The family of this 245-nucleotide RNA sequence from Cohnella faecalis is "glmS glucosamine-6-phosphate activated ribozyme aptamer". The base pairs follow the family's consensus structure, which is taken from published work. The match comes from Rfam's covariance-model search (60 bits). It is annotated as a riboswitch.
[Rfam]
RNA sequence: CGAGUACGAUAAGCGCCAGAACUUUGCCGGAGCACGGGGAGUCGGGAUAAGCGCGGAAUCGCGAACGGAAAAGCGAUUGCGGAUGCGGAACCGGAUAGACAGCCUGUUCGUGCGGGCCGGGAAGUUGACGAGGUGGGGGUGUUCGGAUCAUUCGGCGGGGACCCUCCGGCUUAGCAUCGAAGCCGAUAAUCGGAAGACAAAACGCAGCGGGCGACCGGGCGUACAAUAUUCCGAUAAGAUGCUUG
Numbered sequence: 001c002g003a004g005u006a007c008g009a010u011a012a013g014c015g016c017c018a019g020a021a022c023u024u025u026g027c028c029g030g031a032g033c034a035c036g037g038g039g040a041g042u043c044g045g046g047a048u049a050a051g052c053g054c055g056g057a058a059u060c061g062c063g064a065a066c067g068g069a070a071a072a073g074c075g076a077u078u079g080c081g082g083a084u085g086c087g088g089a090a091c092c093g094g095a096u097a098g099a100c101a102g103c104c105u106g107u108u109c110g111u112g113c114g115g116g117c118c119g120g121g122a123a124g125u126u127g128a129c130g131a132g133g134u135g136g137g138g139g140u141g142u143u144c145g146g147a148u149c150a151u152u153c154g155g156c157g158g159g160g161a162c163c164c165u166c167c168g169g170c171u172u173a174g175c176a177u178c179g180a181a182g183c184c185g186a187u188a189a190u191c192g193g194a195a196g197a198c199a200a201a202a203c204g205c206a207g208c209g210g211g212c213g214a215c216c217g218g219g220c221g222u223a224c225a226a227u228a229u230u231c232c233g234a235u236a237a238g239a240u241g242c243u244u245g
Stems, first nucleotide, its partner, number of pairs: 020126006027119001029117001135166005143155004167185006189235007203221003208217003